The record is a 242-nucleotide sequence from Dialister micraerophilus, which matches "T-box leader" in Rfam.
RNA sequence: AUACUACCUGUGAUCAGGGAGAGUAGUGAAUGAAUUAAUCAAUAAAGAGAGUCGGCGCCGGUGAGAAUACGACAUGAUGUUCAUACAUGAAUGGGCCUGUGAGGUGCAGUCCGAAUCGUUAAGAGUAGGCACUGACGGAACUUCAACCGAUAUAAUGAAGCUCGCAUCGCAAAAUGCCGUGCGUUGAGGUGGGCUUAGUCCAAUUAGGGUGGUACCGCGGAAUUUAUCCUUUCGUCCCUUGC
Numbered sequence: 001a002u003a004c005u006a007c008c009u010g011u012g013a014u015c016a017g018g019g020a021g022a023g024u025a026g027u028g029a030a031u032g033a034a035u036u037a038a039u040c041a042a043u044a045a046a047g048a049g050a051g052u053c054g055g056c057g058c059c060g061g062u063g064a065g066a067a068u069a070c071g072a073c074a075u076g077a078u079g080u081u082c083a084u085a086c087a088u089g090a091a092u093g094g095g096c097c098u099g100u101g102a103g104g105u106g107c108a109g110u111c112c113g114a115a116u117c118g119u120u121a122a123g124a125g126u127a128g129g130c131a132c133u134g135a136c137g138g139a140a141c142u143u144c145a146a147c148c149g150a151u152a153u154a155a156u157g158a159a160g161c162u163c164g165c166a167u168c169g170c171a172a173a174a175u176g177c178c179g180u181g182c183g184u185u186g187a188g189g190u191g192g193g194c195u196u197a198g199u200c201c202a203a204u205u206a207g208g209g210u211g212g213u214a215c216c217g218c219g220g221a222a223u224u225u226a227u228c229c230u231u232u233c234g235u236c237c238c239u240u241g242c
Stems, first nucleotide, its partner, number of pairs: 007104002015099004026088003030084002040076002051073004107134004111129002136149003191201004206239004217235005

The family has 48 seed sequences and 19,395 matches in Rfam 15.1.
Rfam classes the family as a cis-regulatory leader.
The match comes from Rfam's covariance-model search (97 bits).
The source organism's lineage runs through Bacteria, Bacillati, Negativicutes, Veillonellaceae and Dialister micraerophilus.